[Rfam]
RNA sequence: GCUGUCAACCGCGACUGGCGAGGGUGGAGAACCACCGGGGAGCGGCAGCAGACAAGGCGUCGUCCGCCUGGGCGCCUCCG
Numbered sequence: 001g002c003u004g005u006c007a008a009c010c011g012c013g014a015c016u017g018g019c020g021a022g023g024g025u026g027g028a029g030a031a032c033c034a035c036c037g038g039g040g041a042g043c044g045g046c047a048g049c050a051g052a053c054a055a056g057g058c059g060u061c062g063u064c065c066g067c068c069u070g071g072g073c074g075c076c077u078c079c080g
Base pairs, nucleotide, nucleotide: 003051006048009045010044011043012042015039016038017068018067019066020065024035025034026033027032057075058074059073060072061071
Dot-bracket structure: ..(..(..((((..(([[[[...((((....))))..))..))))..)..).....(((((...]]]]..))))).....